[Rfam]
RNA sequence: GCUAAUUGCUAGGGGUGUCUUUCAAAAAGACUGAGAUAUUGAUGAAAUCAAUGGACCCUCUGAACCUGAGAGUUAGGACUCGCGAAGGGAAUGCUAAUAAGUAACACU
Number, nucleotide and partner (000 for none) at each position: 001g000002c000003u000004a000005a000006u096007u000008g094009c093010u000011a059012g058013g057014g056015g000016u053017g031018u030019c029020u028021u027022u000023c000024a000025a000026a000027a021028a020029g019030a018031c017032u000033g000034a000035g000036a000037u000038a052039u051040u050041g049042a048043u000044g000045a000046a000047a000048u042049c041050a040051a039052u038053g016054g000055a000056c014057c013058c012059u011060c000061u000062g000063a000064a000065c088066c087067u086068g000069a000070g081071a080072g079073u000074u000075a000076g000077g000078a000079c072080u071081c070082g000083c000084g000085a000086a067087g066088g065089g000090a000091a000092u000093g009094c008095u000096a006097a000098u000099a000100a000101g000102u000103a000104a000105c000106a000107c000108u000

Source information:
Shown here is a 108-nucleotide RNA sequence from Vagococcus allomyrinae, a member of the family "TPP riboswitch aptamer (THI element)". NCBI's taxonomy places the organism under Bacteria, Bacillati, Bacilli, Lactobacillales, Vagococcus. Rfam's curators write: Vitamin B(1) in its active form thiamin pyrophosphate (TPP) is an essential coenzyme that is synthesised by coupling of pyrimidine and thiazole moieties in bacteria. It scores 63 bits against the family's covariance model. Pairs were carried over by alignment from the consensus structure, which is taken from published work.